RNA sequence: AAAUCUUAACUGUUAUUCUCUUGUAUAAGCUCAUUAAUGGGUAUGAGCGUCUCGACCAGGCAACCGUAAAUUGCCCCAGGCUACAAGAGGCUGCAUAAAUUGG
Numbered sequence: 001a002a003a004u005c006u007u008a009a010c011u012g013u014u015a016u017u018c019u020c021u022u023g024u025a026u027a028a029g030c031u032c033a034u035u036a037a038u039g040g041g042u043a044u045g046a047g048c049g050u051c052u053c054g055a056c057c058a059g060g061c062a063a064c065c066g067u068a069a070a071u072u073g074c075c076c077c078a079g080g081c082u083a084c085a086a087g088a089g090g091c092u093g094c095a096u097a098a099a100u101u102g103g
Stems, first nucleotide, its partner, number of pairs: 018089008029048006057079001059075005

Shown here is a 103-nucleotide sequence from Paenibacillus sp. FSL H7-0331, a member of the family "Purine riboswitch aptamer".
The family's consensus secondary structure is taken from published work.
NCBI's taxonomy places the organism under Bacteria, Bacillati, Bacillota, Bacilli, Paenibacillus.